Rfam assigns this 168-nucleotide RNA from Dorea sp. D27 to the family "Lysine riboswitch aptamer". Rfam links the family to the GO term lysine biosynthetic process.
[Rfam]
RNA sequence: GAACUUGAUAGAGGCGCGGUUUUCAUAAGUAAUCCAGUACGAUAGUCCGGGAGACUGUACUGGGUGGAAGGGAAGACUGCCGAAGGGUGUGCAUAUCCCGUGUGCACAUUCUGGGACGCGUGCAGAAGAUGCCGCGGACUGUCACAUCAGUGGAGCGCUAUCAGUGUA
Dot-bracket structure: .....((((((....(((((((((.......((((((((((..............))))))))))......)))))))))...((((((((((((.....))))))))))))((..((((.(((.....)))))))..)).((((....))))....)))))).....